[Rfam]
RNA sequence: CUUCAGGAUCGCUAGGGUUCCGGUCGUGCGACACGCGUCGCGCGAUGGCUGGUCCGAGAGCAAUCCGGUCUUGCCGGCCACCUUGUUUCGAAGGCGGCGGCGAGGCUCCACGGAGGGAUAAAAGCCCGGGAGGU
Dot-bracket structure: ......(((.((..((...(((((((((((((....))))))))))..).)).))....)).))).((((((((((.....................)))))))))).(.[...(((.......))).)..]..
A member of the RNA family "Guanidine-I riboswitch aptamer" from Paraburkholderia solisilvae, 134 nucleotides long. The match comes from Rfam's covariance-model search (76 bits).